[Rfam]
RNA sequence: GUAGAGUAUUCAGAAUUGCACGAUGCAAUACCAACCGAGUUGAGAACCACGGUGGUAAAUUAAUAUGGGUUUCGACCAAAAAUAUCUGGAUAC
Numbered sequence: 001g002u003a004g005a006g007u008a009u010u011c012a013g014a015a016u017u018g019c020a021c022g023a024u025g026c027a028a029u030a031c032c033a034a035c036c037g038a039g040u041u042g043a044g045a046a047c048c049a050c051g052g053u054g055g056u057a058a059a060u061u062a063a064u065a066u067g068g069g070u071u072u073c074g075a076c077c078a079a080a081a082a083u084a085u086c087u088g089g090a091u092a093c
Stems, first nucleotide, its partner, number of pairs: 006066005015029006030056003035052003039047002044087001068077003
Shown here is a 93-nucleotide RNA sequence from Sphingobacterium sp. ML3W, a member of the family "SAM-I/IV (S-adenosyl methionine) riboswitch aptamer". Taxonomically the source falls in Sphingobacterium (Bacteria, Pseudomonadati, Bacteroidota, Sphingobacteriales). Its Rfam clan is "SAM clan". The base pairs follow the family's consensus structure, which is taken from published work.